[Rfam]
RNA sequence: CGGCUGUAGCCAAAUUCAAUAGCUGAGAAGUUAACUGGCCGGUUGUUAGUGAGAGAUAACCUCUCCCGUUGACCAAUCUGCUUACCGAACUUCUCACAUUU
Numbered sequence: 001c002g003g004c005u006g007u008a009g010c011c012a013a014a015u016u017c018a019a020u021a022g023c024u025g026a027g028a029a030g031u032u033a034a035c036u037g038g039c040c041g042g043u044u045g046u047u048a049g050u051g052a053g054a055g056a057u058a059a060c061c062u063c064u065c066c067c068g069u070u071g072a073c074c075a076a077u078c079u080g081c082u083u084a085c086c087g088a089a090c091u092u093c094u095c096a097c098a099u100u101u
Stems, first nucleotide, its partner, number of pairs: 025095008037082003041078004045073007